[Rfam]
RNA: Nitrogen stress-induced RNA 1
Organism: Leptolyngbya sp. Heron Island J
RNA sequence: UGGUAGAUGCACCCUGAUGUCUGACUCCUGAGCCUUUUUGAGGCUUAGGGGUCUUUUUU
Numbered sequence: 001u002g003g004u005a006g007a008u009g010c011a012c013c014c015u016g017a018u019g020u021c022u023g024a025c026u027c028c029u030g031a032g033c034c035u036u037u038u039u040g041a042g043g044c045u046u047a048g049g050g051g052u053c054u055u056u057u058u059u
Stems, first nucleotide, its partner, number of pairs: 002013003025051011